[Rfam]
RNA: Small nucleolar RNA SNORA46
Organism: Rhinolophus ferrumequinum
RNA sequence: AGCACUAUAUUUAAACCUAUUGAUGGGAAUUUUCCCCAUUCUAGGUUACGCUGUAGUGCAAAAGCAUUCCUGGCUCUUCAUGUUGCACAGCUGAGUUCGAGCCAUUCUGCUGUUGCUGUAUAGAGUGAAGGAACAUAA
Number, nucleotide and partner (000 for none) at each position: 001a000002g059003c058004a057005c056006u055007a054008u053009a052010u000011u000012u000013a000014a047015a046016c045017c044018u000019a000020u000021u000022g040023a039024u038025g037026g036027g035028a000029a000030u000031u000032u000033u000034c000035c027036c026037c025038a024039u023040u022041c000042u000043a000044g017045g016046u015047u014048a000049c000050g000051c000052u009053g008054u007055a006056g005057u004058g003059c002060a000061a000062a000063a000064g000065c000066a000067u133068u132069c131070c130071u129072g000073g126074c125075u124076c123077u122078u000079c000080a000081u120082g119083u000084u000085g116086c115087a114088c112089a111090g110091c109092u000093g107094a106095g000096u000097u000098c000099g000100a000101g000102c000103c000104a000105u000106u094107c093108u000109g091110c090111u089112g088113u000114u087115g086116c085117u000118g000119u082120a081121u000122a077123g076124a075125g074126u073127g000128a000129a071130g070131g069132a068133a067134c000135a000136u000137a000138a000